[Rfam]
RNA: Archaeal RNase P
Organism: Thermoplasmata archaeon
RNA sequence: GGGAGACGGAGGACGGCCGACGGUAGGCGCAAGCCAGCUGAGGAAGUUCCCUCCUCCAAGGGCGAGGCGGAUCCGGAAAUCGGAUACGGCGAGAGCCGUGGCAAGGGCACAGAAACGACACAGACCGGGCAGACAGGAUGACCCGCCAGGCGGCGACGUUCCCCGGGAUUUGGUGAAACGGCGACACCCCGCCGGAGCAAGUCCGCACAGCAGGGCAGACCGGCCCGGGACCUGCGGGUAGGACGCGUAGUUGAAUGCCGUCUGAAACAGAAGGGGGGCUACUACCGCCACCC
Numbered sequence: 001g002g003g004a005g006a007c008g009g010a011g012g013a014c015g016g017c018c019g020a021c022g023g024u025a026g027g028c029g030c031a032a033g034c035c036a037g038c039u040g041a042g043g044a045a046g047u048u049c050c051c052u053c054c055u056c057c058a059a060g061g062g063c064g065a066g067g068c069g070g071a072u073c074c075g076g077a078a079a080u081c082g083g084a085u086a087c088g089g090c091g092a093g094a095g096c097c098g099u100g101g102c103a104a105g106g107g108c109a110c111a112g113a114a115a116c117g118a119c120a121c122a123g124a125c126c127g128g129g130c131a132g133a134c135a136g137g138a139u140g141a142c143c144c145g146c147c148a149g150g151c152g153g154c155g156a157c158g159u160u161c162c163c164c165g166g167g168a169u170u171u172g173g174u175g176a177a178a179c180g181g182c183g184a185c186a187c188c189c190c191g192c193c194g195g196a197g198c199a200a201g202u203c204c205g206c207a208c209a210g211c212a213g214g215g216c217a218g219a220c221c222g223g224c225c226c227g228g229g230a231c232c233u234g235c236g237g238g239u240a241g242g243a244c245g246c247g248u249a250g251u252u253g254a255a256u257g258c259c260g261u262c263u264g265a266a267a268c269a270g271a272a273g274g275g276g277g278g279c280u281a282c283u284a285c286c287g288c289c290a291c292c293c
Base pairs, nucleotide, nucleotide: 001293002292003291005289007287008286009285010283011282012262013261014260015259016258017257021040022039023038024037045280046279047278049277050276051275052274053273054197055196056195057194060226061225062224063223066193067192068191069190070189071085072084073083074082075081086099087098088097089096090095100188101187107182108181121172122171123170125166126165127164128163129162131160143153144152201244202243203242204241210235211234212233213232214231